[Rfam]
RNA sequence: GUGCGAAUGAUGGAAAACAUAUUAAUGCUGAAAAUAUUGAUGUUUCCAAAGGAACCACUGAUGCAU
Numbered sequence: 001g002u003g004c005g006a007a008u009g010a011u012g013g014a015a016a017a018c019a020u021a022u023u024a025a026u027g028c029u030g031a032a033a034a035u036a037u038u039g040a041u042g043u044u045u046c047c048a049a050a051g052g053a054a055c056c057a058c059u060g061a062u063g064c065a066u
Stems, first nucleotide, its partner, number of pairs: 001066005

Source information
Shown here is a 66-nucleotide RNA from Xenopus tropicalis, a member of the family "Small nucleolar RNA SNORD42". For this family Rfam cites "RNomics: an experimental approach that identifies 201 candidates for novel, small, non-messenger RNAs in mouse" (Huttenhofer et al., EMBO J, 2001). Rfam's curators write: snoRNA U42 is found in intron 3 of the ribosomal protein L23a (RPL23a) gene in humans and is also present in mice.